[Rfam]
RNA sequence: GGAUCGGGAGGCGUCCGGUGGGACGGGCGCCAUGAAUAGAUCGAAACUCUGCCGUCUCUGAUGGGUGUGCCGCUGUGGCCCGACAGCGCUGCGCA
Numbered sequence: 001g002g003a004u005c006g007g008g009a010g011g012c013g014u015c016c017g018g019u020g021g022g023a024c025g026g027g028c029g030c031c032a033u034g035a036a037u038a039g040a041u042c043g044a045a046a047c048u049c050u051g052c053c054g055u056c057u058c059u060g061a062u063g064g065g066u067g068u069g070c071c072g073c074u075g076u077g078g079c080c081c082g083a084c085a086g087c088g089c090u091g092c093g094c095a
Stems, first nucleotide, its partner, number of pairs: 002042004010031008066095005071088005
RNA: Rhodo-rpoB RNA
Organism: Puniceibacterium sediminis